[Rfam]
RNA sequence: GCAUAAUGAUGAUGAAACAUUGUUCAAUUCUGAAGUUUAUUGAUUGAAUUAAUAACCUCCUACUCAUUCUGA
Numbered sequence: 001g002c003a004u005a006a007u008g009a010u011g012a013u014g015a016a017a018c019a020u021u022g023u024u025c026a027a028u029u030c031u032g033a034a035g036u037u038u039a040u041u042g043a044u045u046g047a048a049u050u051a052a053u054a055a056c057c058u059c060c061u062a063c064u065c066a067u068u069c070u071g072a
Stems, first nucleotide, its partner, number of pairs: 006067004028047001031042001
Dot-bracket structure: .....((((..................(..(..........)....)................)))).....
The record is a 72-nucleotide RNA sequence from Nyssa sinensis, which matches "Small nucleolar RNA Z105" in Rfam. A search with the family's covariance model found it, with a score of 56 bits. Gene Ontology terms of the family: RNA processing and nucleolus. NCBI's taxonomy places the organism under Eukaryota, Embryophyta, Euphyllophyta, Nyssaceae, Nyssa. The family has 11 seed sequences and 621 matches in Rfam 15.1.